[Rfam]
RNA: Bacteroidales small SRP
Organism: Segatella baroniae
RNA sequence: AUGAGACGGGCAAGUCUCAUACGGUCAGCUCCCUCGGAACUCCCCCAGGAUGGGAACAUAGCAAGGGUACUUGGUCGUAGCGACGCGAUAUGAAUCGCUUGCCCACCC
Numbered sequence: 001a002u003g004a005g006a007c008g009g010g011c012a013a014g015u016c017u018c019a020u021a022c023g024g025u026c027a028g029c030u031c032c033c034u035c036g037g038a039a040c041u042c043c044c045c046c047a048g049g050a051u052g053g054g055a056a057c058a059u060a061g062c063a064a065g066g067g068u069a070c071u072u073g074g075u076c077g078u079a080g081c082g083a084c085g086c087g088a089u090a091u092g093a094a095u096c097g098c099u100u101g102c103c104c105a106c107c108c
Stems, first nucleotide, its partner, number of pairs: 008104008017093005022087002024084002